[Rfam]
RNA sequence: UCUUCAUUUUGCACACUGUCUCACCGGUCAGAGGGGCGAUAGAGUGUGCAAAAUGAAGAGA
Numbered sequence: 001u002c003u004u005c006a007u008u009u010u011g012c013a014c015a016c017u018g019u020c021u022c023a024c025c026g027g028u029c030a031g032a033g034g035g036g037c038g039a040u041a042g043a044g045u046g047u048g049c050a051a052a053a054u055g056a057a058g059a060g061a
Stems, first nucleotide, its partner, number of pairs: 001059007010050001012048006019041001021039002
Source information:
A member of the RNA family "mir-8364 microRNA precursor family" from Pristionchus pacificus, 61 nucleotides long. Lineage of the source: Eukaryota > Metazoa > Rhabditida > Diplogasteromorpha > Pristionchus. Rfam links the family to the GO terms miRNA-mediated post-transcriptional gene silencing and RISC complex.